The record is a 98-nucleotide RNA sequence from Populus trichocarpa, which matches "MIR6440 microRNA precursor family" in Rfam.

RNA sequence: GGGUUAAAACUCGAAAUCAGUCACACUCGGUCAAACUCGUAAAAUCAGUCCGAUUUUACCGAUUUUAACCGAGUUUGAUCGAUUUCGAGUUUUAACCU
Numbered sequence: 001g002g003g004u005u006a007a008a009a010c011u012c013g014a015a016a017u018c019a020g021u022c023a024c025a026c027u028c029g030g031u032c033a034a035a036c037u038c039g040u041a042a043a044a045u046c047a048g049u050c051c052g053a054u055u056u057u058a059c060c061g062a063u064u065u066u067a068a069c070c071g072a073g074u075u076u077g078a079u080c081g082a083u084u085u086c087g088a089g090u091u092u093u094a095a096c097c098u
Base pairs, nucleotide, nucleotide: 002097003096004095005094006093007092008091009090010089011088012087013086014085015084016083017082018081020079021078022077023076025074026073027072028071029070039069040068041066042065043064044063045062046061